[Rfam]
Record summary:
Shown here is a 149-nucleotide RNA, a member of the family "Group II catalytic intron D1-D4-7". Pairs were carried over by alignment from the consensus structure. A reference for the family is Bonen and Vogel (2001), "The ins and outs of group II introns", Trends Genet. Its family is annotated with Group II intron splicing in the Gene Ontology. About the family: Group II introns are found in rRNA, tRNA and mRNA of organelles in fungi, plants and protists, and also in mRNA in bacteria.
RNA sequence: CCUGCAAUUCCGUUUGCAGUAGUCUGAGGGUACGUGCAUAAUGAGUAAUCAUUUUGUGCGAAGCUGCCCUGACAAAGUACCCUUUCCGAAAGGAAUAGACCAAAGCGUGAGCCGAGGUCAAUAGCGGAUAACAUCGUUCUGCCGAGGGG
Numbered sequence: 001c002c003u004g005c006a007a008u009u010c011c012g013u014u015u016g017c018a019g020u021a022g023u024c025u026g027a028g029g030g031u032a033c034g035u036g037c038a039u040a041a042u043g044a045g046u047a048a049u050c051a052u053u054u055u056g057u058g059c060g061a062a063g064c065u066g067c068c069c070u071g072a073c074a075a076a077g078u079a080c081c082c083u084u085u086c087c088g089a090a091a092g093g094a095a096u097a098g099a100c101c102a103a104a105g106c107g108u109g110a111g112c113c114g115a116g117g118u119c120a121a122u123a124g125c126g127g128a129u130a131a132c133a134u135c136g137u138u139c140u141g142c143c144g145a146g147g148g149g
Stems, first nucleotide, its partner, number of pairs: 002019006028069005033060006040053005084095004098119004105112002124142005